[Rfam]
Rfam assigns this 33-nucleotide RNA sequence to the family "L31-Coriobacteria ribosomal protein leader". It is annotated as a cis-regulatory leader. Rfam's curators put it in the seed alignment. Rfam 15.1 lists 105 matches to the family in 84 species.
RNA sequence: GUCCUGGUCGGAAACCAGGACCGACAAAAGGAG
Numbered sequence: 001g002u003c004c005u006g007g008u009c010g011g012a013a014a015c016c017a018g019g020a021c022c023g024a025c026a027a028a029a030g031g032a033g
Stems, first nucleotide, its partner, number of pairs: 001021008